[Rfam]
RNA sequence: UCCAGCAGUAGUCAGCUACCUAUUGCUGCUCAGUGCCUGUGAUAGUGUUAUGCUGCUGGGAGAGGAAUGUGCUGCCGAGUUGCUCCUGGCACCCCCGGUGCUGUUCUGGCAUUGGGCGGUGCCAGGCUUUGGCAGCGCUCUGCACGCUUGAGAGUGGAGUAACUCCUUCCCCGUGGAGUUAAUCCUAGAUUGGAUGCAGACAAU
Numbered sequence: 001u002c003c004a005g006c007a008g009u010a011g012u013c014a015g016c017u018a019c020c021u022a023u024u025g026c027u028g029c030u031c032a033g034u035g036c037c038u039g040u041g042a043u044a045g046u047g048u049u050a051u052g053c054u055g056c057u058g059g060g061a062g063a064g065g066a067a068u069g070u071g072c073u074g075c076c077g078a079g080u081u082g083c084u085c086c087u088g089g090c091a092c093c094c095c096c097g098g099u100g101c102u103g104u105u106c107u108g109g110c111a112u113u114g115g116g117c118g119g120u121g122c123c124a125g126g127c128u129u130u131g132g133c134a135g136c137g138c139u140c141u142g143c144a145c146g147c148u149u150g151a152g153a154g155u156g157g158a159g160u161a162a163c164u165c166c167u168u169c170c171c172c173g174u175g176g177a178g179u180u181a182a183u184c185c186u187a188g189a190u191u192g193g194a195u196g197c198a199g200a201c202a203a204u
Stems, first nucleotide, its partner, number of pairs: 001060009011051002015046004020041001021039002025036002069138009085126009095116002097112001099111004140199005147192001156185003160181007
RNA: Small nucleolar RNA SNORA74